[Rfam]
RNA sequence: CCCUGACAGUGGCAUUCCGCUACUGACUUAACCCAGACAGGAGAUUAACAUG
Numbered sequence: 001c002c003c004u005g006a007c008a009g010u011g012g013c014a015u016u017c018c019g020c021u022a023c024u025g026a027c028u029u030a031a032c033c034c035a036g037a038c039a040g041g042a043g044a045u046u047a048a049c050a051u052g
Base pairs, nucleotide, nucleotide: 002041003040004039005038007025008024009023010022011021
Annotation: The family of this 52-nucleotide RNA is "Mu-gpT-DE RNA".